[Rfam]
A member of the RNA family "GlmZ RNA activator of glmS mRNA" from Rouxiella badensis, 201 nucleotides long.
A reference for the family is Argaman et al. (2001), "Novel small RNA-encoding genes in the intergenic regions of Escherichia coli", Curr Biol.
Clan: Glm clan.
The source organism's lineage runs through Bacteria, Gammaproteobacteria, Enterobacterales, Yersiniaceae and Rouxiella.
The family's consensus secondary structure is taken from published work.
Rfam describes the family as follows. This RNA was discovered in E. coli during a large scale screen. The sraJ gene was expressed in early logarithmic phase, but its level decreased with cell growth. Specific cleavage products of this RNA were found. Identified in Yersinia pseudotuberculosis as Ysr248/153/sR016.
It is annotated as a small RNA.
RNA sequence: GUAGAUGCUCAUUCCACCCUCUUAUGAUUGCGUAGCUUCAUAUACCUGGGAAUGAUGCAGAGCCAAAUUACAGUGUCUCUUGUCUAUCUGACCGAUAACCUCUGGGUUAUCAACCAGCAGGCAAAACGUUGAGUGUGACACUACCCCUGUUGUCUAAGACCUGAUUGUUUUGACACUUGUCUCUCCGGCAAGUGUUUUUUU
Numbered sequence: 001g002u003a004g005a006u007g008c009u010c011a012u013u014c015c016a017c018c019c020u021c022u023u024a025u026g027a028u029u030g031c032g033u034a035g036c037u038u039c040a041u042a043u044a045c046c047u048g049g050g051a052a053u054g055a056u057g058c059a060g061a062g063c064c065a066a067a068u069u070a071c072a073g074u075g076u077c078u079c080u081u082g083u084c085u086a087u088c089u090g091a092c093c094g095a096u097a098a099c100c101u102c103u104g105g106g107u108u109a110u111c112a113a114c115c116a117g118c119a120g121g122c123a124a125a126a127c128g129u130u131g132a133g134u135g136u137g138a139c140a141c142u143a144c145c146c147c148u149g150u151u152g153u154c155u156a157a158g159a160c161c162u163g164a165u166u167g168u169u170u171u172g173a174c175a176c177u178u179g180u181c182u183c184u185c186c187g188g189c190a191a192g193u194g195u196u197u198u199u200u201u
Base pairs, nucleotide, nucleotide: 001063002062006059007058008057009055010054011053012052015050018049020042028035072142073141074140075139076138077137082122083121084120085119094111095110096109097108152160153159154158172196173195174194175193176192177191178190179189180188181187